Shown here is a 72-nucleotide RNA sequence from Castor canadensis, a member of the family "Small nucleolar RNA SNORD113/SNORD114 family". It scores 79 bits against the family's covariance model. The family is grouped with related families in Rfam's "SNORD74 clan". For this family Rfam cites "Identification of tandemly-repeated C/D snoRNA genes at the imprinted human 14q32 domain reminiscent of those at the Prader-Willi/Angelman syndrome region" (Cavaille et al., Hum Mol Genet, 2002). Rfam describes the family as follows. The imprinted human domain at 14q32 contains two clusters of tandemly repeated small nucleolar RNAs named 14q(I) and 14q(II) snoRNAs. These two clusters are named SNORD113 and SNORD114 respectively in the HGNC approved gene symbol nomenclature. The snoRNAs found in both clusters are clearly related and are represented here by a single family. These snoRNAs are intron encoded and are processed from the tissue-specific non-coding human MEG8 RNA, which lies downstream of the imprinted genes DLK1 and GTL2. snoRNAs 14q(I) and 14q(II) differ from previously identified C/D box snoRNAs in their expression profiles and lack of complementarity to rRNA and snRNA. Homologues of these snoRNAs are found in the imprinted non-coding mouse transcript Rian, and in the rat non-coding Bsr (brain-specific repetitive) RNA.
[Rfam]
RNA sequence: UGGAUCGGUGAUGACCAGUGGUGGCGUAUGAGUCACGGAUGAUGACUAUAUGUCUGGAACUCUGAGGUCGAA
Numbered sequence: 001u002g003g004a005u006c007g008g009u010g011a012u013g014a015c016c017a018g019u020g021g022u023g024g025c026g027u028a029u030g031a032g033u034c035a036c037g038g039a040u041g042a043u044g045a046c047u048a049u050a051u052g053u054c055u056g057g058a059a060c061u062c063u064g065a066g067g068u069c070g071a072a
Stems, first nucleotide, its partner, number of pairs: 003069004